[Rfam]
Rfam assigns this 310-nucleotide sequence from Mesorhizobium australicum to the family "Mesorhizobail RNA 7".
For this family Rfam cites "A Genome-Wide Prediction and Identification of Intergenic Small RNAs by Comparative Analysis in Mesorhizobium huakuii 7653R" (Fuli et al., Front Microbiol, 2017).
The match comes from Rfam's covariance-model search (237 bits).
The base pairs follow the family's consensus structure, which was predicted with RNAfold.
Lineage of the source: Bacteria > Pseudomonadati > Alphaproteobacteria > Mesorhizobium > Mesorhizobium australicum.

Nucleotides: 310
Stems, first nucleotide, its partner, number of pairs: 018053002070119003079112002081107003087101004132145005149177005158169003185273001186195002201267003227259002232242001245252002274302003278298001280294004
Number, partner (000 for none) and nucleotide at each position: 001000g002000a003000u004000c005000g006000c007000g008000c009000a010000a011000u012000g013000c014000c015000g016000c017000c018053a019052u020000g021000a022000u023000c024000u025000c026000c027000a028000g029000c030000u031000u032000u033000c034000u035000c036000g037000c038000c039000g040000a041000u042000u043000g044000c045000u046000u047000u048000c049000c050000g051000g052019a053018u054000g055000c056000u057000a058000g059000a060000u061000c062000a063000u064000a065000c066000c067000g068000g069000u070119u071118u072117c073000g074000a075000u076000a077000u078000a079112g080111c081107a082106a083105c084000c085000a086000c087101c088100a089099a090098a091000g092000a093000u094000c095000g096000c097000a098090u099089u100088u101087g102000a103000c104000a105083g106082u107081u108000a109000u110000g111080g112079c113000a114000a115000a116000g117072g118071g119070a120000c121000c122000c123000a124000c125000c126000c127000u128000u129000c130000g131000c132145g133144c134143g135142u136141u137000c138000c139000g140000g141136g142135a143134c144133g145132c146000a147000a148000g149177g150176g151175u152174c153173g154000g155000u156000g157000g158169c159168g160167a161000u162000c163000a164000a165000a166000a167160u168159c169158g170000u171000a172000u173153c174152g175151a176150u177149u178000g179000a180000a181000a182000c183000u184000g185273c186195g187194u188000c189000g190000c191000g192000g193000a194187g195186c196000c197000g198000a199000u200000u201267g202266g203265g204000a205000g206000g207000a208000u209000a210000c211000c212000g213000g214000a215000g216000a217000u218000c219000g220000a221000u222000a223000a224000u225000g226000c227259c228258g229000a230000c231000a232242g233000c234000g235000g236000c237000g238000c239000g240000u241000u242232u243000g244000c245252g246251c247000u248000c249000c250000u251246g252245u253000c254000u255000g256000g257000c258228u259227g260000c261000g262000c263000g264000g265203c266202c267201c268000g269000c270000g271000a272000a273185g274302c275301c276300c277000c278298g279000a280294g281293g282292u283291g284000u285000c286000g287000c288000g289000u290000c291283c292282a293281u294280c295000a296000a297000c298278c299000a300276g301275g302274g303000a304000g305000a306000g307000u308000a309000a310000u